[Rfam]
RNA: RAGATH-21 RNA
RNA sequence: AGCACGCGUCCUUAAAAGAAACCGGCGUACAUCCUCCAAAAGGUGCGCCGGGAGGUUGAAAAGCGGAUGCAAUUUCCGGCGUGUGCA
Numbered sequence: 001a002g003c004a005c006g007c008g009u010c011c012u013u014a015a016a017a018g019a020a021a022c023c024g025g026c027g028u029a030c031a032u033c034c035u036c037c038a039a040a041a042g043g044u045g046c047g048c049c050g051g052g053a054g055g056u057u058g059a060a061a062a063g064c065g066g067a068u069g070c071a072a073u074u075u076c077c078g079g080c081g082u083g084u085g086c087a
Base pairs, nucleotide, nucleotide: 002086003085004084005083006082007081008080009079010078022051023050024049025048026047027046028045029044030043055064056063057062065077066076067075